[Rfam]
RNA sequence: CUUCGCUGGUGGCGCACCUCCCUGUAGCGGGCGGUGUAAUCAUGCGUAGCUGUCAUCAGACAGAGCAAGAUCCCGAAAGCCCGCCCACAAGCGGGCUUUUUUAU
Numbered sequence: 001c002u003u004c005g006c007u008g009g010u011g012g013c014g015c016a017c018c019u020c021c022c023u024g025u026a027g028c029g030g031g032c033g034g035u036g037u038a039a040u041c042a043u044g045c046g047u048a049g050c051u052g053u054c055a056u057c058a059g060a061c062a063g064a065g066c067a068a069g070a071u072c073c074c075g076a077a078a079g080c081c082c083g084c085c086c087a088c089a090a091g092c093g094g095g096c097u098u099u100u101u102u103a104u
Stems, first nucleotide, its partner, number of pairs: 009043004014037005020031003078097007
RNA: Tryptophan operon leader
Organism: Sodalis ligni